[Rfam]
RNA sequence: UGGAGUGUGAGGAGUACGGAAUACCACUUCCGGGGUCGAAACGAGGACAGACUCCCAGAAGCGUUCCGGC
Numbered sequence: 001u002g003g004a005g006u007g008u009g010a011g012g013a014g015u016a017c018g019g020a021a022u023a024c025c026a027c028u029u030c031c032g033g034g035g036u037c038g039a040a041a042c043g044a045g046g047a048c049a050g051a052c053u054c055c056c057a058g059a060a061g062c063g064u065u066c067c068g069g070c
Base pairs, nucleotide, nucleotide: 020065021064022063024061027058028057032056033055034054035052036051037050
Rfam assigns this 70-nucleotide sequence from Synechococcus sp. LTW-R to the family "Cyano-1 RNA". The family has 265 seed sequences and 283 matches in Rfam 15.1. NCBI's taxonomy places the organism under Bacteria, Bacillati, Cyanobacteriota, Synechococcales, Synechococcus. The match comes from Rfam's covariance-model search (47 bits).